[Rfam]
Nucleotides: 134
Stems, first nucleotide, its partner, number of pairs: 003061006011053001017048004022043001023041005073128003077124001086113002089110002092107004
Number, partner (000 for none) and nucleotide at each position: 001000c002000u003061u004060c005059c006058c007057c008056u009000c010000c011053c012000u013000u014000a015000c016000u017048c018047c019046a020045g021000u022043c023041a024040c025039u026038c027037u028000g029000u030000a031000c032000u033000c034000g035000g036000u037027g038026g039025g040024g041023u042000g043022g044000u045020c046019u047018g048017g049000c050000a051000u052000u053011g054000a055000c056008a057007g058006g059005g060004g061003a062000u063000a064000c065000a066000g067000c068000a069000c070000c071000g072000c073128g074127g075126c076000c077124c078000u079000c080000u081000c082000c083000c084000c085000u086113c087112u088000g089110a090109u091000c092107u093106a094105g095104g096000a097000c098000u099000a100000u101000u102000c103000u104095c105094c106093u107092a108000u109090a110089u111000g112087a113086g114000g115000c116000u117000u118000g119000u120000g121000a122000g123000c124077g125000a126075g127074u128073u129000g130000a131000c132000a133000a134000u